[Rfam]
RNA sequence: GGCCCGGAACAUGAGCCGGAGCCAAAAGAUCGCCGCCUCGUUCAGCCAAGACUUAUACCGCCUGGAUCCAUCGGACCGGGACGGAAGG
Dot-bracket structure: (((((((..(....))))).)))..................................((((((((.(((...)))))))).)))....
Rfam assigns this 88-nucleotide RNA from Syntrophotalea carbinolica to the family "pan motif".
Rfam's curators put it in the seed alignment.